A member of the RNA family "Small nucleolar RNA SNORD59" from Eurystomus gularis, 74 nucleotides long. The match comes from Rfam's covariance-model search (74 bits). The base pairs follow the family's consensus structure, which was predicted with ILM. The source organism's lineage runs through Eukaryota, Teleostomi, Neoaves, Telluraves and Eurystomus. Rfam classes the family as a C/D-box small nucleolar RNA. On this family, see Galardi et al., Mol Cell Biol 2002: "Purified box C/D snoRNPs are able to reproduce site-specific 2'-O-methylation of target RNA in vitro".
RNA sequence: CCUUCACUGAUGAGCAACAAUUUGACUUUCGUUCUUCUGAGCUCACUGAAGCCACGUUUAUCGAUCUGAGGAGG
Numbered sequence: 001c002c003u004u005c006a007c008u009g010a011u012g013a014g015c016a017a018c019a020a021u022u023u024g025a026c027u028u029u030c031g032u033u034c035u036u037c038u039g040a041g042c043u044c045a046c047u048g049a050a051g052c053c054a055c056g057u058u059u060a061u062c063g064a065u066c067u068g069a070g071g072a073g074g
Base pairs, nucleotide, nucleotide: 001074002073003072005070